[Rfam]
RNA: Guanidine-II riboswitch aptamer (mini-ykkC)
Organism: Solimonas aquatica
RNA sequence: CGGUCGGGACGACCCGACUCCUCCGCAAGCACCCCGCCAGGACGACCUGG
Number, nucleotide and partner (000 for none) at each position: 001c000002g019003g018004u017005c016006g015007g014008g013009a000010c000011g000012a000013c008014c007015c006016g005017a004018c003019u002020c000021c000022u000023c000024c000025g000026c000027a000028a000029g000030c000031a000032c000033c000034c000035c000036g000037c050038c049039a048040g047041g046042a000043c000044g000045a000046c041047c040048u039049g038050g037